[Rfam]
RNA: Connexin-43 internal ribosome entry site (IRES)
RNA sequence: CGCUUUUACGAGGUAUCAGCACUUUUCUUUCAUUGGGGGAAGGCGUGAGGAAAGUACCAAACAGCAGCAGACGUUUAAACUUUAAAUAGACAGGUCCGAGAGCCUAAAGCUCUCCUUUGCUUUGACUUCGGCCUCCAAGGAGCCUCACCGCUUUGGCGCGCCGGCUUCGCUUUCAUUAAGCGAAAGAGUAAGUUUUUGAAAAG
Numbered sequence: 001c002g003c004u005u006u007u008a009c010g011a012g013g014u015a016u017c018a019g020c021a022c023u024u025u026u027c028u029u030u031c032a033u034u035g036g037g038g039g040a041a042g043g044c045g046u047g048a049g050g051a052a053a054g055u056a057c058c059a060a061a062c063a064g065c066a067g068c069a070g071a072c073g074u075u076u077a078a079a080c081u082u083u084a085a086a087u088a089g090a091c092a093g094g095u096c097c098g099a100g101a102g103c104c105u106a107a108a109g110c111u112c113u114c115c116u117u118u119g120c121u122u123u124g125a126c127u128u129c130g131g132c133c134u135c136c137a138a139g140g141a142g143c144c145u146c147a148c149c150g151c152u153u154u155g156g157c158g159c160g161c162c163g164g165c166u167u168c169g170c171u172u173u174c175a176u177u178a179a180g181c182g183a184a185a186g187a188g189u190a191a192g193u194u195u196u197u198g199a200a201a202a203g
Base pairs, nucleotide, nucleotide: 002020003019004018007015008014009013029142030141031140033138034137035136036135037134038133039132040128041127042126047122048121050120053118054117070096071095072094074092098114099113100112101111102110152199153198155196156195158194165186166185167184168182169181170180171179172178